Notes: Rfam assigns this 48-nucleotide sequence to the family "ssNA-helicase RNA". It is one of the family's seed sequences. It is annotated as a small RNA.
Nucleotides: 048
Stems, first nucleotide, its partner, number of pairs: 001030010
Number, partner (000 for none) and nucleotide at each position: 001030u002029u003028c004027c005026c006025u007024a008023g009022a010021g011000u012000c013000a014000g015000u016000a017000u018000u019000a020000c021010c022009u023008c024007u025006a026005g027004g028003g029002a030001a031000c032000u033000u034000c035000u036000g037000u038000a039000a040000c041000g042000u043000g044000u045000c046000g047000c048000a